[Rfam]
The family of this 107-nucleotide RNA sequence from Clostridium tetanomorphum is "TPP riboswitch aptamer (THI element)". NCBI's taxonomy places the organism under Bacteria, Bacillati, Bacillota, Clostridiaceae, Clostridium.
RNA sequence: AAAUAUAUCUAGGGGAGCCUAUAAAUAGGCUGAGAGUGAGAUGUGAGCUCAGACCCUCAUAACCUGAUUUGGGUAAUACCAGCGUAGGGAAGAACUUUGUAUAAUAU
Numbered sequence: 001a002a003a004u005a006u007a008u009c010u011a012g013g014g015g016a017g018c019c020u021a022u023a024a025a026u027a028g029g030c031u032g033a034g035a036g037u038g039a040g041a042u043g044u045g046a047g048c049u050c051a052g053a054c055c056c057u058c059a060u061a062a063c064c065u066g067a068u069u070u071g072g073g074u075a076a077u078a079c080c081a082g083c084g085u086a087g088g089g090a091a092g093a094a095c096u097u098u099g100u101a102u103a104a105u106a107u
Stems, first nucleotide, its partner, number of pairs: 008093003011057004017030005037051004063088004069082004
Dot-bracket structure: .......(((((((..(((((....)))))......((((.......))))..)))).....((((..((((......))))..))))..)))..............
It scores 77 bits against the family's covariance model.
Its family is annotated with thiamine pyrophosphate binding in the Gene Ontology.
Pairs were carried over by alignment from the consensus structure, which is taken from published work.